[Rfam]
RNA: mir-150 microRNA precursor family
Nucleotides: 081
Base pairs, nucleotide, nucleotide: 010072011071012070014068015067016066017065018064022059023058027056028055029054030053031052032051
Number, partner (000 for none) and nucleotide at each position: 001000c002000c003000u004000c005000u006000c007000g008000g009000c010072c011071c012070u013000g014068u015067c016066u017065c018064c019000c020000a021000a022059c023058c024000c025000u026000c027056g028055u029054a030053c031052c032051a033000g034000u035000g036000c037000c038000g039000c040000a041000c042000c043000u044000c045000a046000g047000a048000c049000c050000c051032u052031g053030g054029u055028a056027c057000a058023g059022g060000c061000a062000u063000g064018g065017g066016g067015g068014g069000c070012a071011g072010g073000g074000a075000c076000c077000u078000g079000g080000g081000g